[Rfam]
The record is an 81-nucleotide sequence from Microctonus hyperodae, which matches "mir-981 microRNA precursor family" in Rfam.
RNA sequence: AUGCAGACGUCCGGGUUUCGCGACUUGCGAGCUGUUAUUAUCGUACUGGUUCGUUGUCGACGAAACCUGCACGAUCUGUAU
Numbered sequence: 001a002u003g004c005a006g007a008c009g010u011c012c013g014g015g016u017u018u019c020g021c022g023a024c025u026u027g028c029g030a031g032c033u034g035u036u037a038u039u040a041u042c043g044u045a046c047u048g049g050u051u052c053g054u055u056g057u058c059g060a061c062g063a064a065a066c067c068u069g070c071a072c073g074a075u076c077u078g079u080a081u
Stems, first nucleotide, its partner, number of pairs: 001081006012069009029052005

Pairs were carried over by alignment from the consensus structure, which was predicted with RNAalifold.
The match comes from Rfam's covariance-model search (72 bits).
For this family Rfam cites "Bioinformatic prediction, deep sequencing of microRNAs and expression analysis during phenotypic plasticity in the pea aphid, Acyrthosiphon pisum" (Legeai et al., BMC Genomics, 2010).
The family has 17 seed sequences and 180 matches in Rfam 15.1.
Gene Ontology terms of the family: RISC complex and miRNA-mediated post-transcriptional gene silencing.